[Rfam]
RNA: Small nucleolar RNA SNORA3/SNORA45 family
Organism: Theropithecus gelada
RNA sequence: ACCAAGACUCAAGUCACAGUCCGAGUGUCCUGGUGUGCUAGGGCACUUGCAGAGAAUCUGCUGGUCUUGAUUCACUGGUGGAGACAAUCGGUGCCCAGAUUAGAAACAUGC
Numbered sequence: 001a002c003c004a005a006g007a008c009u010c011a012a013g014u015c016a017c018a019g020u021c022c023g024a025g026u027g028u029c030c031u032g033g034u035g036u037g038c039u040a041g042g043g044c045a046c047u048u049g050c051a052g053a054g055a056a057u058c059u060g061c062u063g064g065u066c067u068u069g070a071u072u073c074a075c076u077g078g079u080g081g082a083g084a085c086a087a088u089c090g091g092u093g094c095c096c097a098g099a100u101u102a103g104a105a106a107c108a109u110g111c
Stems, first nucleotide, its partner, number of pairs: 003049004008043002012039002015037004020032001023029002061103007069095001073093006